The family of this 279-nucleotide sequence from Agrilus planipennis is "Nuclear RNase P". Rfam 15.1 lists 3,848 matches to the family in 1,862 species.
RNA sequence: UCUGUGAUAAUCUCACAUUUGGAGCUUCCAACAGAGUAUCUGUUACUCAGUAAUUAGCUUCGGGAAGGUCUGAGUGAGCCAUUUAUUCUCUAGAUGAGAACUUGUGUGUUACAAGGCUGGGGAACCAGAAAUAUGCAUGAAAAGCUUAUUUUAGCCUGGGACUGUUUUUAAACAUGAGGUGAAGAGCUUAGCAUGUUGGAAUCCCCAGUGGCCGGCAAUUUUAGUGCAAUUUGUGAGCUGGCAUUUGUCAGAACUCAAUUCAGACUAGUCUGUCACAGA
Numbered sequence: 001u002c003u004g005u006g007a008u009a010a011u012c013u014c015a016c017a018u019u020u021g022g023a024g025c026u027u028c029c030a031a032c033a034g035a036g037u038a039u040c041u042g043u044u045a046c047u048c049a050g051u052a053a054u055u056a057g058c059u060u061c062g063g064g065a066a067g068g069u070c071u072g073a074g075u076g077a078g079c080c081a082u083u084u085a086u087u088c089u090c091u092a093g094a095u096g097a098g099a100a101c102u103u104g105u106g107u108g109u110u111a112c113a114a115g116g117c118u119g120g121g122g123a124a125c126c127a128g129a130a131a132u133a134u135g136c137a138u139g140a141a142a143a144g145c146u147u148a149u150u151u152u153a154g155c156c157u158g159g160g161a162c163u164g165u166u167u168u169u170a171a172a173c174a175u176g177a178g179g180u181g182a183a184g185a186g187c188u189u190a191g192c193a194u195g196u197u198g199g200a201a202u203c204c205c206c207a208g209u210g211g212c213c214g215g216c217a218a219u220u221u222u223a224g225u226g227c228a229a230u231u232u233g234u235g236a237g238c239u240g241g242c243a244u245u246u247g248u249c250a251g252a253a254c255u256c257a258a259u260u261c262a263g264a265c266u267a268g269u270c271u272g273u274c275a276c277a278g279a
Stems, first nucleotide, its partner, number of pairs: 001279004007273003012237006021061005034048005070263005078212003086100005101115005116209007136195003238251005